[Rfam]
RNA sequence: CCGCUGGUCCGGGCCCCUCUGGCGUAGCUGUCGGCGCUUGCGCGAUGUCGGACCGUUUCC
Numbered sequence: 001c002c003g004c005u006g007g008u009c010c011g012g013g014c015c016c017c018u019c020u021g022g023c024g025u026a027g028c029u030g031u032c033g034g035c036g037c038u039u040g041c042g043c044g045a046u047g048u049c050g051g052a053c054c055g056u057u058u059c060c
Base pairs, nucleotide, nucleotide: 006054007053008052009051010050011049012048022043023042024041025040026039027038029036
A member of the RNA family "terC RNA" from Neorhizobium sp. SOG26, 60 nucleotides long. The base pairs follow the family's consensus structure, which is taken from published work. The organism belongs to Neorhizobium, within Bacteria. Rfam classes the family as a cis-regulatory element.